RNA sequence: AAACUAAGAGGUGGAAAGUGACCUUCCAUACGCCUACGGUAUAGGAAACUAUACAAAGGGUGAUAGAAGCCCGUAACAGGUUAAGCUGACGAGGAUAAGAGAUUUCGGAAUUGGUCUCCGAACUUAGUAU
Numbered sequence: 001a002a003a004c005u006a007a008g009a010g011g012u013g014g015a016a017a018g019u020g021a022c023c024u025u026c027c028a029u030a031c032g033c034c035u036a037c038g039g040u041a042u043a044g045g046a047a048a049c050u051a052u053a054c055a056a057a058g059g060g061u062g063a064u065a066g067a068a069g070c071c072c073g074u075a076a077c078a079g080g081u082u083a084a085g086c087u088g089a090c091g092a093g094g095a096u097a098a099g100a101g102a103u104u105u106c107g108g109a110a111u112u113g114g115u116c117u118c119c120g121a122a123c124u125u126a127g128u129a130u
Stems, first nucleotide, its partner, number of pairs: 001130001003128006011029005020116004031099001032061004104122005

skipping-rope RNA: a 130-nucleotide sequence. It is one of the family's seed sequences.